RNA sequence: AGGCUCUCAACGGGGUGCGCCGGGAAGGCGCUGAGAGCCGCGUAGCGUCGCGGCAACCCGUCGAACCUGAUCCGGUUAGCACCGGCGGAGGGAAUUGAGAUGCCGAUCCGG
Numbered sequence: 001a002g003g004c005u006c007u008c009a010a011c012g013g014g015g016u017g018c019g020c021c022g023g024g025a026a027g028g029c030g031c032u033g034a035g036a037g038c039c040g041c042g043u044a045g046c047g048u049c050g051c052g053g054c055a056a057c058c059c060g061u062c063g064a065a066c067c068u069g070a071u072c073c074g075g076u077u078a079g080c081a082c083c084g085g086c087g088g089a090g091g092g093a094a095u096u097g098a099g100a101u102g103c104c105g106a107u108c109c110g111g
Base pairs, nucleotide, nucleotide: 006099007098008097009096010095011060012059013058014057017031018030019029020028021027038053039052040051041050042049066091067090068089072085073084074083075082
Dot-bracket structure: .....(((((((((..(((((.....)))))......(((((......)))))...)))).....(((...((((......))))...)))...)))))............
The record is a 111-nucleotide RNA from bacterium HR39, which matches "TPP riboswitch aptamer (THI element)" in Rfam. The match comes from Rfam's covariance-model search (78 bits).